A member of the RNA family "ZMP/ZTP riboswitch aptamer (pfl RNA motif)" from Arthrobacter psychrochitiniphilus, 89 nucleotides long.
Lineage of the source: Bacteria > Bacillati > Actinomycetes > Micrococcaceae > Arthrobacter.

[Rfam]
RNA sequence: UUGAGGAGUUGCGACUGGCGAUGAGGUGGGACACCACCGGGGAGCAGCACGAAUCAAGACCAAUGCGAUCGUACGCCUGGGACGCAAGG
Numbered sequence: 001u002u003g004a005g006g007a008g009u010u011g012c013g014a015c016u017g018g019c020g021a022u023g024a025g026g027u028g029g030g031a032c033a034c035c036a037c038c039g040g041g042g043a044g045c046a047g048c049a050c051g052a053a054u055c056a057a058g059a060c061c062a063a064u065g066c067g068a069u070c071g072u073a074c075g076c077c078u079g080g081g082a083c084g085c086a087a088g089g
Stems, first nucleotide, its partner, number of pairs: 006050001008048005015041002017077004026037004066084002069081002